[Rfam]
RNA sequence: UGCACUGUAUGGUGUCAGUAGUCAAUACUUUAUUCCUGGUGACGUGUUCAAAAGAGAGUGUGACAGAUAUUCAGUAUCUCUUUACAGUAUCACUGGAUUUCUUGGCUUUGUGCAUGUUAAACCUGGCAUUUCUAUUGAUACAUUA
Number, nucleotide and partner (000 for none) at each position: 001u000002g061003c060004a059005c058006u057007g000008u000009a000010u000011g000012g000013u000014g000015u054016c000017a000018g047019u046020a045021g043022u042023c041024a040025a000026u038027a037028c000029u000030u000031u000032a000033u000034u000035c000036c000037u027038g026039g000040u024041g023042a022043c021044g000045u020046g019047u018048u000049c000050a000051a000052a000053a000054g015055a000056g000057a006058g005059u004060g003061u002062g000063a000064c000065a133066g132067a131068u000069a129070u128071u126072c125073a124074g123075u000076a000077u000078c000079u000080c000081u000082u000083u000084a000085c000086a000087g113088u112089a111090u110091c000092a000093c000094u000095g000096g000097a000098u000099u000100u000101c000102u000103u000104g000105g000106c000107u000108u000109u000110g090111u089112g088113c087114a000115u000116g000117u000118u000119a000120a000121a000122c000123c074124u073125g072126g071127c000128a070129u069130u000131u067132c066133u065134a000135u000136u000137g000138a000139u000140a000141c000142a000143u000144u000145a000
Rfam assigns this 145-nucleotide sequence from Chinchilla lanigera to the family "Small nucleolar RNA SNORA8". Rfam's curators write: ACA8 is a member of the H/ACA class of snoRNA that guide the sites of modification of uridines to pseudouridines. A search with the family's covariance model found it, with a score of 71 bits. The base pairs follow the family's consensus structure, which was predicted with RNAfold. Lineage of the source: Eukaryota > Vertebrata > Teleostomi > Dipnotetrapodomorpha > Chinchilla. Clan: SNORA8 clan.